Shown here is a 46-nucleotide RNA sequence from Tauraco erythrolophus, a member of the family "Histone 3' UTR stem-loop". The family's consensus secondary structure is taken from published work. The organism belongs to Tauraco, within Eukaryota. Gene Ontology term of the family: mRNA 3'-end processing by stem-loop binding and cleavage. The family's RNA type in Rfam is cis-regulatory element.
RNA sequence: UAAAAGGCUCUUUUCAGAGCCACCCACAUCUUCCUAAAAAGAGCAG
Numbered sequence: 001u002a003a004a005a006g007g008c009u010c011u012u013u014u015c016a017g018a019g020c021c022a023c024c025c026a027c028a029u030c031u032u033c034c035u036a037a038a039a040a041g042a043g044c045a046g
Stems, first nucleotide, its partner, number of pairs: 006021006